[Rfam]
RNA sequence: ACGGGUUUACCCCCGCAUCGAGCCUAGUGGUCCUUACCAAGCAUCAUUUAUAUGAGCUGCUCGAAUAACACUAAACACAAUCCUGGGUAAAC
Numbered sequence: 001a002c003g004g005g006u007u008u009a010c011c012c013c014c015g016c017a018u019c020g021a022g023c024c025u026a027g028u029g030g031u032c033c034u035u036a037c038c039a040a041g042c043a044u045c046a047u048u049u050a051u052a053u054g055a056g057c058u059g060c061u062c063g064a065a066u067a068a069c070a071c072u073a074a075a076c077a078c079a080a081u082c083c084u085g086g087g088u089a090a091a092c
Stems, first nucleotide, its partner, number of pairs: 005092008018064006028039004040058003044055002
Background
Shown here is a 92-nucleotide RNA from Legionella drancourtii, a member of the family "RAGATH-13 RNA". Rfam's curators put it in the seed alignment. Taxonomically the source falls in Legionella drancourtii (Bacteria, Pseudomonadati, Gammaproteobacteria, Legionella). The literature on the family includes a 2015 paper in Nat Chem Biol by Weinberg et al., "New classes of self-cleaving ribozymes revealed by comparative genomics analysis". Rfam links the family to the GO term catalytic activity. The family's consensus secondary structure is taken from published work. By type it is a ribozyme.